[Rfam]
RNA sequence: GUGCUUCAAGGAUGAACAAAGUUUCACACAUAGAUAUCCAUCCUUUUCACUUUGUCAGCUUCGUCUUUCAUGUGUUGCCGAUCAUUGUUGAAUGGAAGAUCU
Number, nucleotide and partner (000 for none) at each position: 001g000002u000003g000004c000005u000006u000007c000008a000009a000010g000011g000012a000013u000014g000015a000016a000017c000018a000019a000020a000021g000022u000023u000024u000025c000026a000027c000028a000029c000030a000031u000032a000033g000034a000035u000036a000037u096038c095039c094040a093041u092042c000043c000044u000045u000046u000047u000048c000049a000050c000051u000052u000053u000054g082055u081056c080057a000058g078059c077060u000061u000062c000063g000064u000065c000066u000067u000068u000069c000070a000071u000072g000073u000074g000075u000076u000077g059078c058079c000080g056081a055082u054083c000084a000085u000086u000087g000088u000089u000090g000091a000092a041093u040094g039095g038096a037097a000098g000099a000100u000101c000102u000
RNA: Small nucleolar RNA snoR99
Organism: Cucumis sativus